A member of the RNA family "MIR3444 microRNA precursor family" from Arabidopsis lyrata, 96 nucleotides long. The source organism's lineage runs through Eukaryota, Embryophyta, Euphyllophyta, Brassicales and Arabidopsis. Rfam's curators put it in the seed alignment.
RNA sequence: CUCUUUAUAUUGGGAGCUCGAUGAGAUCGACCCUAACCGAGCCUAGAUAUCGAGAUUUGGUUCGGGUCAAUCUCAUCAAUCUCCCAAUACUUUACA
Number, nucleotide and partner (000 for none) at each position: 001c000002u000003c000004u000005u000006u000007a000008u089009a088010u087011u086012g085013g084014g083015a082016g081017c000018u079019c000020g077021a076022u075023g074024a073025g072026a071027u000028c000029g068030a067031c066032c065033c064034u000035a000036a061037c060038c000039g000040a057041g056042c000043c054044u000045a000046g051047a000048u000049a000050u000051c046052g000053a000054g043055a000056u041057u040058u000059g000060g037061u036062u000063c000064g033065g032066g031067u030068c029069a000070a000071u026072c025073u024074c023075a022076u021077c020078a000079a018080u000081c016082u015083c014084c013085c012086a011087a010088u009089a008090c000091u000092u000093u000094a000095c000096a000